RNA sequence: UCCGAGCUGGGCAGCAUAAGCUUAUAACUCAAGCGAGGGCAUCAAGGUGAUGGGACUUGGCUUAAUUUCACAUGGUAGGGCUGCAGGUUGCGGUCUGCUGGCUUGUCCCUUCCGAGCUAGGAGUUAGGUGAAGUGGGUUAGGCAAAGGCCUGGUCUGAACAGCCCCUGAAGAGGAGAGCAUUGCAUCAAGCUGGCUUUACAAAGCAGCGAAUACCUCCCGCCUUCGGUAGUGCAAGGACAACAAGUCGGGGCAUCCUCCGUCCAUCAUUACUAUGUGGAGGGAGCUCAAUCAGACCAUCACCUUU
Numbered sequence: 001u002c003c004g005a006g007c008u009g010g011g012c013a014g015c016a017u018a019a020g021c022u023u024a025u026a027a028c029u030c031a032a033g034c035g036a037g038g039g040c041a042u043c044a045a046g047g048u049g050a051u052g053g054g055a056c057u058u059g060g061c062u063u064a065a066u067u068u069c070a071c072a073u074g075g076u077a078g079g080g081c082u083g084c085a086g087g088u089u090g091c092g093g094u095c096u097g098c099u100g101g102c103u104u105g106u107c108c109c110u111u112c113c114g115a116g117c118u119a120g121g122a123g124u125u126a127g128g129u130g131a132a133g134u135g136g137g138u139u140a141g142g143c144a145a146a147g148g149c150c151u152g153g154u155c156u157g158a159a160c161a162g163c164c165c166c167u168g169a170a171g172a173g174g175a176g177a178g179c180a181u182u183g184c185a186u187c188a189a190g191c192u193g194g195c196u197u198u199a200c201a202a203a204g205c206a207g208c209g210a211a212u213a214c215c216u217c218c219c220g221c222c223u224u225c226g227g228u229a230g231u232g233c234a235a236g237g238a239c240a241a242c243a244a245g246u247c248g249g250g251g252c253a254u255c256c257u258c259c260g261u262c263c264a265u266c267a268u269u270a271c272u273a274u275g276u277g278g279a280g281g282g283a284g285c286u287c288a289a290u291c292a293g294a295c296c297a298u299c300a301c302c303u304u305u
Base pairs, nucleotide, nucleotide: 002039003038004023005022006021007020008019010017028037029036030035044304045303046302047301048300049299050298051297052296053295058288059287060286061284062283063282066279068278069277070276071275072274073273074272075271076270077269078263079262080261081260083258086255089253090252098249099248100247101246102245103244104243105242106241107237108236110235111234113232114231116228117227118226120224121223123221124220127164128163129162134157135156136155137154138153139152140151141150142149143148166171173218174217175216176215182211184209186207192201193200
The record is a 305-nucleotide RNA from Carnegiea gigantea, which matches "Plant signal recognition particle RNA" in Rfam. A search with the family's covariance model found it, with a score of 148 bits.